[Rfam]
A member of the RNA family "Small nucleolar RNA snoR27" from Musa troglodytarum, 94 nucleotides long. Gene Ontology terms of the family: nucleolus and RNA processing. The family's RNA type in Rfam is C/D-box small nucleolar RNA.

RNA sequence: AUUUGGUCAGUGUUGUGAUGUCUACAUAAUCUGCGUUAUCUUUCUGCAAUUCCUUUCAAGGAAUUGAAGAUGACUAUGAUACACUGAGAUUAAU
Numbered sequence: 001a002u003u004u005g006g007u008c009a010g011u012g013u014u015g016u017g018a019u020g021u022c023u024a025c026a027u028a029a030u031c032u033g034c035g036u037u038a039u040c041u042u043u044c045u046g047c048a049a050u051u052c053c054u055u056u057c058a059a060g061g062a063a064u065u066g067a068a069g070a071u072g073a074c075u076a077u078g079a080u081a082c083a084c085u086g087a088g089a090u091u092a093a094u
Stems, first nucleotide, its partner, number of pairs: 003093005